[Rfam]
RNA: FMN riboswitch aptamer (RFN element)
Organism: Dorea formicigenerans
RNA sequence: GAGAUUCUUCGGGGCAGGGUGUAAUUCCCAACCGGCGGUAAAGUCCGCGACCCGCUGUGUAAGUGUAUGCAGUGGCUGAUCUGGUGAGAUUCCGGAACCGACAGUAAAGUCUGGAUGAGAGAAGAAUUAU
Number, nucleotide and partner (000 for none) at each position: 001g000002a000003g128004a127005u126006u125007c124008u123009u122010c121011g000012g000013g000014g000015c000016a000017g029018g028019g027020u000021g000022u000023a000024a000025u000026u000027c019028c018029c017030a000031a110032c109033c100034g099035g048036c047037g046038g045039u000040a000041a000042a000043g098044u097045c038046c037047g036048c035049g000050a000051c000052c075053c074054g073055c072056u000057g000058u000059g000060u000061a000062a000063g000064u000065g000066u000067a000068u000069g000070c000071a000072g055073u054074g053075g052076c000077u000078g000079a000080u096081c095082u094083g093084g092085u000086g000087a000088g000089a000090u000091u000092c084093c083094g082095g081096a080097a044098c043099c034100g033101a000102c113103a112104g111105u000106a000107a000108a000109g032110u031111c104112u103113g102114g000115a000116u000117g000118a000119g000120a000121g010122a009123a008124g007125a006126a005127u004128u003129a000130u000